[Rfam]
RNA sequence: AAUUAUCGAAGGAGAGAUUGUGCUGCUACACACCCCUUGGGUCAAAAGAAAUGUGGGAAAGGGCACACCCACUGAUAAUU
Numbered sequence: 001a002a003u004u005a006u007c008g009a010a011g012g013a014g015a016g017a018u019u020g021u022g023c024u025g026c027u028a029c030a031c032a033c034c035c036c037u038u039g040g041g042u043c044a045a046a047a048g049a050a051a052u053g054u055g056g057g058a059a060a061g062g063g064c065a066c067a068c069c070c071a072c073u074g075a076u077a078a079u080u
Base pairs, nucleotide, nucleotide: 001080002079003078004077005076006075007074008073011029013027014026020066021065022064023063024062031048032042033041034040035039053072054071055070056069057068
Background: Rfam assigns this 80-nucleotide sequence to the family "skipping-rope RNA". The family's RNA type in Rfam is small RNA. The base pairs follow the family's consensus structure, which is taken from published work. It is one of the family's seed sequences.